RNA sequence: GACCCGCGCAUAUCCGGGUUACGAUAUGCACCUCCCUGUUGGACUGGCCCGGGCUUUGCCCCGGGCCUUUUU
Numbered sequence: 001g002a003c004c005c006g007c008g009c010a011u012a013u014c015c016g017g018g019u020u021a022c023g024a025u026a027u028g029c030a031c032c033u034c035c036c037u038g039u040u041g042g043a044c045u046g047g048c049c050c051g052g053g054c055u056u057u058g059c060c061c062c063g064g065g066c067c068u069u070u071u072u
Stems, first nucleotide, its partner, number of pairs: 008029007047066007